The family of this 197-nucleotide RNA sequence from Sporosarcina sp. Marseille-Q4063 is "Bacillus sRNA ncr1575". A search with the family's covariance model found it, with a score of 66 bits. By type it is a small RNA. NCBI's taxonomy places the organism under Bacteria, Bacillota, Bacilli, Caryophanales, Sporosarcina. On this family, see Irnov et al., Nucleic Acids Res 2010: "Identification of regulatory RNAs in Bacillus subtilis".
[Rfam]
RNA sequence: AAUGAUACAGAGGAAGGGCUGAGCGUGGAAGAUGGACAAUUAAUCUUUUGAUUCCGAGAAAUUUGAGUUUGAUUCAACGGAAACAGGAUUAGUCUGUCUACUUUUACGAAUAGUUCCUUCCUCGAUGCGCGAGCUAGAGGUUUUUUAAGGUUCUUUUUUAGACUAAUCCUUUCGAUUAAUUUCGAAGGGAUUUUUUU
Number, nucleotide and partner (000 for none) at each position: 001a000002a000003u000004g000005a000006u000007a000008c000009a000010g000011a000012g000013g000014a000015a000016g103017g102018g101019c000020u000021g000022a000023g000024c000025g097026u000027g000028g094029a093030a000031g000032a000033u000034g000035g000036a000037c000038a000039a000040u000041u091042a090043a089044u088045c087046u086047u000048u000049u085050g084051a000052u082053u081054c080055c079056g000057a000058g000059a070060a069061a068062u067063u000064u000065g000066a000067g062068u061069u060070u059071g000072a000073u000074u000075c000076a000077a000078c000079g055080g054081a053082a052083a000084c050085a049086g046087g045088a044089u043090u042091a041092g000093u029094c028095u000096g000097u025098c000099u000100a000101c018102u017103u016104u000105u000106a000107c000108g000109a000110a000111u147112a146113g145114u000115u000116c000117c000118u140119u139120c000121c137122u136123c000124g134125a000126u000127g000128c000129g000130c000131g000132a000133g000134c124135u000136a122137g121138a000139g119140g118141u000142u000143u000144u000145u113146u112147a111148a000149g000150g000151u000152u000153c000154u000155u000156u000157u000158u000159u000160a000161g000162a000163c000164u000165a192166a191167u190168c189169c188170u187171u186172u185173c184174g183175a182176u000177u000178a000179a000180u000181u000182u175183c174184g173185a172186a171187g170188g169189g168190a167191u166192u165193u000194u000195u000196u000197u000